[Rfam]
RNA sequence: AUGAAGGAUACGGGAGAGAGUCGAAAGACCGCCGAAGGUAUAAGUUGUUACUAUGCCAGUAACAAUAAAGAUCUCAGGCAAAAGGACCGUAUCUAGACA
Numbered sequence: 001a002u003g004a005a006g007g008a009u010a011c012g013g014g015a016g017a018g019a020g021u022c023g024a025a026a027g028a029c030c031g032c033c034g035a036a037g038g039u040a041u042a043a044g045u046u047g048u049u050a051c052u053a054u055g056c057c058a059g060u061a062a063c064a065a066u067a068a069a070g071a072u073c074u075c076a077g078g079c080a081a082a083a084g085g086a087c088c089g090u091a092u093c094u095a096g097a098c099a
Base pairs, nucleotide, nucleotide: 006094007093008092009091010090011089012088013087020029021028022027031079032078033077034075035074038073044066045065046064047063048062049061050060051059